Notes:
This 102-nucleotide RNA sequence from Leptolyngbya sp. NIES-3755 belongs to the Rfam family "Guanidine-I riboswitch aptamer".
RNA sequence: CAAAUUUGCUUCUAGGGUUCCGAUUCAGCUUGAAUGUCUGGUCCGAGAGAAGCCGCUGUUCUACCCAGAGCAGCUACACGGAGGGAGAAAAGCCCGGGAGAG
Numbered sequence: 001c002a003a004a005u006u007u008g009c010u011u012c013u014a015g016g017g018u019u020c021c022g023a024u025u026c027a028g029c030u031u032g033a034a035u036g037u038c039u040g041g042u043c044c045g046a047g048a049g050a051a052g053c054c055g056c057u058g059u060u061c062u063a064c065c066c067a068g069a070g071c072a073g074c075u076a077c078a079c080g081g082a083g084g085g086a087g088a089a090a091a092g093c094c095c096g097g098g099a100g101a102g
Stems, first nucleotide, its partner, number of pairs: 008053005015044002020041002022038001023035005055074007077097001079100001083095003
NCBI's taxonomy places the organism under Bacteria, Cyanobacteriota, Cyanophyceae, Leptolyngbyales, Leptolyngbya. A search with the family's covariance model found it, with a score of 85 bits.